[Rfam]
RNA sequence: UACUAUUCAUGCAGAGGGGAGCACAGUCAAAAGUGCUGCCCUGCAACAUGUAUAAUUCAUAUGCUGCAGGAAGAAAAUCAAAGCAGUUCACCUGGGAUUCUUAUGAUUUCAUACCUGCAGCAUAU
Numbered sequence: 001u002a003c004u005a006u007u008c009a010u011g012c013a014g015a016g017g018g019g020a021g022c023a024c025a026g027u028c029a030a031a032a033g034u035g036c037u038g039c040c041c042u043g044c045a046a047c048a049u050g051u052a053u054a055a056u057u058c059a060u061a062u063g064c065u066g067c068a069g070g071a072a073g074a075a076a077a078u079c080a081a082a083g084c085a086g087u088u089c090a091c092c093u094g095g096g097a098u099u100c101u102u103a104u105g106a107u108u109u110c111a112u113a114c115c116u117g118c119a120g121c122a123u124a125u
Base pairs, nucleotide, nucleotide: 004054005053006052008050009049010048011047015042016041017040018039020037021036022035059125060124061123064120065119066118067117068116069115070114079105080104081102082101083100085098089094
Small nucleolar RNA SNORA14: a 125-nucleotide RNA from Leptobrachium leishanense. From the family's description: ACA14 is a member of the H/ACA class of snoRNA that guide the sites of modification of uridines to pseudouridines. Taxonomically the source falls in Leptobrachium (Eukaryota, Metazoa, Dipnotetrapodomorpha, Tetrapoda). The base pairs follow the family's consensus structure, which was predicted with RNAfold.